Annotation
L31-Firmicutes ribosomal protein leader: a 34-nucleotide RNA sequence from Bacillus sp. NSP2.1. Its Rfam clan is "Ribosomal Protein L31 Leader clan". The organism belongs to Bacillus, within Bacteria. The literature on the family includes a 2020 paper in BMC Microbiol by Eckert and Weinberg, "Discovery of 20 novel ribosomal leader candidates in bacteria and archaea".
[Rfam]
RNA sequence: CUCUGUUUCGGCAAACGAUUCAGGGCGGAAAGAG
Numbered sequence: 001c002u003c004u005g006u007u008u009c010g011g012c013a014a015a016c017g018a019u020u021c022a023g024g025g026c027g028g029a030a031a032g033a034g
Stems, first nucleotide, its partner, number of pairs: 001025005008018003